[Rfam]
RNA sequence: GGCCUACCUCUUUGGGGCGAUUGAUCAUGGGGCUCUGUGAUCAAUUGCCCCAUAGAGGGAGGCC
Numbered sequence: 001g002g003c004c005u006a007c008c009u010c011u012u013u014g015g016g017g018c019g020a021u022u023g024a025u026c027a028u029g030g031g032g033c034u035c036u037g038u039g040a041u042c043a044a045u046u047g048c049c050c051c052a053u054a055g056a057g058g059g060a061g062g063c064c
Base pairs, nucleotide, nucleotide: 001064002063003062004061005060007058008057009056010055011054013052014051015050016049017048018047019046020045021044022043023042024041025040026039027038028037029036030035